RNA sequence: AAAAAGGGCAGGCCUUGGCCUGAGGCACAAAACGGGCGCUCCCGCCCUUGUGGUGAAUCGCGAUCACGAGAUUUGCCCUGCAUAAUUUCUGAGCGGCCGGCGAACGGAAUGGACCUUACGGGUCGAUUCCGCCGG
Numbered sequence: 001a002a003a004a005a006g007g008g009c010a011g012g013c014c015u016u017g018g019c020c021u022g023a024g025g026c027a028c029a030a031a032a033c034g035g036g037c038g039c040u041c042c043c044g045c046c047c048u049u050g051u052g053g054u055g056a057a058u059c060g061c062g063a064u065c066a067c068g069a070g071a072u073u074u075g076c077c078c079u080g081c082a083u084a085a086u087u088u089c090u091g092a093g094c095g096g097c098c099g100g101c102g103a104a105c106g107g108a109a110u111g112g113a114c115c116u117u118a119c120g121g122g123u124c125g126a127u128u129c130c131g132c133c134g135g
Base pairs, nucleotide, nucleotide: 008081009080010079011078012077013025014024015023016022017021026052027051028050029049030048034045036043053076054075055074056073057072058071059070099133100132101131102130106129107128108127110125112124113123114122115121
RNA: U11 spliceosomal RNA